[Rfam]
RNA sequence: AGGUGGGGUAGAGGAGCGACAUUUAACAGACCUUAGAGGAGCUUGAGAAACAUUGAUACUAGGGAGAAGGAAAUGUCGCCGAAGCUUAUAAUAUUCUCAGUAUUAUUUGCUGGGCCUGCAGUUAAUAGCUGCAGGACUGUCUCAAUAAGCUGCCCGGUUUAUUGAGUUGCGCUAUCUCAUUU
Numbered sequence: 001a002g003g004u005g006g007g008g009u010a011g012a013g014g015a016g017c018g019a020c021a022u023u024u025a026a027c028a029g030a031c032c033u034u035a036g037a038g039g040a041g042c043u044u045g046a047g048a049a050a051c052a053u054u055g056a057u058a059c060u061a062g063g064g065a066g067a068a069g070g071a072a073a074u075g076u077c078g079c080c081g082a083a084g085c086u087u088a089u090a091a092u093a094u095u096c097u098c099a100g101u102a103u104u105a106u107u108u109g110c111u112g113g114g115c116c117u118g119c120a121g122u123u124a125a126u127a128g129c130u131g132c133a134g135g136a137c138u139g140u141c142u143c144a145a146u147a148a149g150c151u152g153c154c155c156g157g158u159u160u161a162u163u164g165a166g167u168u169g170c171g172c173u174a175u176c177u178c179a180u181u182u
Stems, first nucleotide, its partner, number of pairs: 006177006016079009031064006038057001083111003088106007112138002115135008141166009

Record summary:
Rfam assigns this 182-nucleotide RNA from Clostridium sp. JN-9 to the family "Lysine riboswitch aptamer". It scores 104 bits against the family's covariance model.